[Rfam]
RNA: Small nucleolar RNA snR34
Organism: Tetrapisispora phaffii
RNA sequence: AAUCAAAAAAUUUAUUUUUUUAUGGAAACAAUGCCACAGUUGGUAAACUGUCUUCUAACAGUAGCUAAUUGCCAGUGAUUCAGAUAUAACUGAACACUAGUUUCCUAGAUCGAUUCGUUUGGACAGGAUAGGAAGUCCAUUGUUUGUGUGUUGGUGAACUCUAGGAAAUUGAGUCCACCAGUGAUGAACUUGGGAUGUCGUCUGAUAGUCUACAUUU
Numbered sequence: 001a002a003u004c005a006a007a008a009a010a011u012u013u014a015u016u017u018u019u020u021u022a023u024g025g026a027a028a029c030a031a032u033g034c035c036a037c038a039g040u041u042g043g044u045a046a047a048c049u050g051u052c053u054u055c056u057a058a059c060a061g062u063a064g065c066u067a068a069u070u071g072c073c074a075g076u077g078a079u080u081c082a083g084a085u086a087u088a089a090c091u092g093a094a095c096a097c098u099a100g101u102u103u104c105c106u107a108g109a110u111c112g113a114u115u116c117g118u119u120u121g122g123a124c125a126g127g128a129u130a131g132g133a134a135g136u137c138c139a140u141u142g143u144u145u146g147u148g149u150g151u152u153g154g155u156g157a158a159c160u161c162u163a164g165g166a167a168a169u170u171g172a173g174u175c176c177a178c179c180a181g182u183g184a185u186g187a188a189c190u191u192g193g194g195a196u197g198u199c200g201u202c203u204g205a206u207a208g209u210c211u212a213c214a215u216u217u
Stems, first nucleotide, its partner, number of pairs: 024081003038070007048061004113209003118205002135196004142189004148185002